Background
Shown here is a 126-nucleotide RNA from Euphorbia tirucalli, a member of the family "Plastid-psbA-1 3UTR RNA". On this family, see Richter et al., Plant Commun 2023: "Retrograde signaling in plants: A critical review focusing on the GUN pathway and beyond". By type it is a cis-regulatory element.
RNA sequence: GUUGAAGCUCCAUCUACAAAUGGGUAAGAUUUCGGUCUUGGUGUGUGCGAGUUCUUGAAAACAAAACUCAAAAAUAAAGGAGCAAUACCAAACCUCUUGAUAGAAAUUGGAUAUUGCUCCUUUAUU
Numbered sequence: 001g002u003u004g005a006a007g008c009u010c011c012a013u014c015u016a017c018a019a020a021u022g023g024g025u026a027a028g029a030u031u032u033c034g035g036u037c038u039u040g041g042u043g044u045g046u047g048c049g050a051g052u053u054c055u056u057g058a059a060a061a062c063a064a065a066a067c068u069c070a071a072a073a074a075u076a077a078a079g080g081a082g083c084a085a086u087a088c089c090a091a092a093c094c095u096c097u098u099g100a101u102a103g104a105a106a107u108u109g110g111a112u113a114u115u116g117c118u119c120c121u122u123u124a125u126u
Stems, first nucleotide, its partner, number of pairs: 009024005076123012091108002095104003